Shown here is a 148-nucleotide sequence from Paenibacillus sp. OAS669, a member of the family "c-di-AMP riboswitch aptamer (ydaO/yuaA leader)".
RNA sequence: UUGAAUAAAAAGCCGAAUUUCUUUUUGAAAACGGGGGAACCAUGAGUAAUAAGGGGUGAAUUCGAUUCCAUUUCGCGAGAUGGAAUUGAUAGGGUACCUGUGCGUCCGAAUCCGUCAGCUAACCUCGUAGGCUUUGUUGCAGGAACCU
Numbered sequence: 001u002u003g004a005a006u007a008a009a010a011a012g013c014c015g016a017a018u019u020u021c022u023u024u025u026u027g028a029a030a031a032c033g034g035g036g037g038a039a040c041c042a043u044g045a046g047u048a049a050u051a052a053g054g055g056g057u058g059a060a061u062u063c064g065a066u067u068c069c070a071u072u073u074c075g076c077g078a079g080a081u082g083g084a085a086u087u088g089a090u091a092g093g094g095u096a097c098c099u100g101u102g103c104g105u106c107c108g109a110a111u112c113c114g115u116c117a118g119c120u121a122a123c124c125u126c127g128u129a130g131g132c133u134u135u136g137u138u139g140c141a142g143g144a145a146c147c148u
Stems, first nucleotide, its partner, number of pairs: 011133004018030003031128006041053001054113003062089012092107004
The organism belongs to Paenibacillus, within Bacteria.